[Rfam]
RNA sequence: UUAUUUAUAAUAUUCCGAGUAAUACAAUCUAAGGGAAACUAUGAUUUUAUUACCAAAGCUAAAAGCUUUUGGGUUUAUUUGGAAACAAAUUAGCCUUCCAUUUGAAAAGGAAUGAAGAUACAUAUACAA
Numbered sequence: 001u002u003a004u005u006u007a008u009a010a011u012a013u014u015c016c017g018a019g020u021a022a023u024a025c026a027a028u029c030u031a032a033g034g035g036a037a038a039c040u041a042u043g044a045u046u047u048u049a050u051u052a053c054c055a056a057a058g059c060u061a062a063a064a065g066c067u068u069u070u071g072g073g074u075u076u077a078u079u080u081g082g083a084a085a086c087a088a089a090u091u092a093g094c095c096u097u098c099c100a101u102u103u104g105a106a107a108a109g110g111a112a113u114g115a116a117g118a119u120a121c122a123u124a125u126a127c128a129a
Stems, first nucleotide, its partner, number of pairs: 003123002006120001011114006019053006026046004033040002055069005071096005077090005097105002